[Rfam]
RNA: Eukaryotic large subunit ribosomal RNA, nucleotides 1 to 444
RNA sequence: UGGCCUCAGAUCAGGGAGGGUCACCCGCCGAAUUUAAGCAUAUUAGUAGAGCGGAGGAAAAAGAAACUAACUAGGAUUUCCUUAGUAGCGGCGAGCGAACAGGAACGAAGCCCAGCGCCGAAUCCCGCGGUCGUCACGGUCGCGGGACAUGUGGUGUUCGGGAGGUUCCGCUUUCUCGUCGUCGAGACUCCUGUCCAAGUUCGUCUUGAACGGGGCCGUUUUCCCGUAGAGGGUGCCAGGCCCGUAGCGACGGAGGUCGGCGGCGAGCGAGAGGGACUCUCCUCAGAGUCGGGUUGCUUGAGAGUGCAGCCCUAAGUGGGUGGUAAAACUCCAUCUAAGGCUAAAUAUUACCGCGAGACCGAUAGCGAACAAGUACCGUGAGGGAAAGUUGAAAAGAACUUUGAAGAGAGAGUUCAAGAGUACGUGAAACCGUUCAGGGGUAAA
Numbered sequence: 001u002g003g004c005c006u007c008a009g010a011u012c013a014g015g016g017a018g019g020g021u022c023a024c025c026c027g028c029c030g031a032a033u034u035u036a037a038g039c040a041u042a043u044u045a046g047u048a049g050a051g052c053g054g055a056g057g058a059a060a061a062a063g064a065a066a067c068u069a070a071c072u073a074g075g076a077u078u079u080c081c082u083u084a085g086u087a088g089c090g091g092c093g094a095g096c097g098a099a100c101a102g103g104a105a106c107g108a109a110g111c112c113c114a115g116c117g118c119c120g121a122a123u124c125c126c127g128c129g130g131u132c133g134u135c136a137c138g139g140u141c142g143c144g145g146g147a148c149a150u151g152u153g154g155u156g157u158u159c160g161g162g163a164g165g166u167u168c169c170g171c172u173u174u175c176u177c178g179u180c181g182u183c184g185a186g187a188c189u190c191c192u193g194u195c196c197a198a199g200u201u202c203g204u205c206u207u208g209a210a211c212g213g214g215g216c217c218g219u220u221u222u223c224c225c226g227u228a229g230a231g232g233g234u235g236c237c238a239g240g241c242c243c244g245u246a247g248c249g250a251c252g253g254a255g256g257u258c259g260g261c262g263g264c265g266a267g268c269g270a271g272a273g274g275g276a277c278u279c280u281c282c283u284c285a286g287a288g289u290c291g292g293g294u295u296g297c298u299u300g301a302g303a304g305u306g307c308a309g310c311c312c313u314a315a316g317u318g319g320g321u322g323g324u325a326a327a328a329c330u331c332c333a334u335c336u337a338a339g340g341c342u343a344a345a346u347a348u349u350a351c352c353g354c355g356a357g358a359c360c361g362a363u364a365g366c367g368a369a370c371a372a373g374u375a376c377c378g379u380g381a382g383g384g385a386a387a388g389u390u391g392a393a394a395a396g397a398a399c400u401u402u403g404a405a406g407a408g409a410g411a412g413u414u415c416a417a418g419a420g421u422a423c424g425u426g427a428a429a430c431c432g433u434u435c436a437g438g439g440g441u442a443a444a
Stems, first nucleotide, its partner, number of pairs: 025054004029049001035042002067074002078105005088096002109342004116156005122150001123147009161282002164278003168275002180263001183260001189255001191253005199216001201215002204213002225229001232242002291312007318336005376383002399410004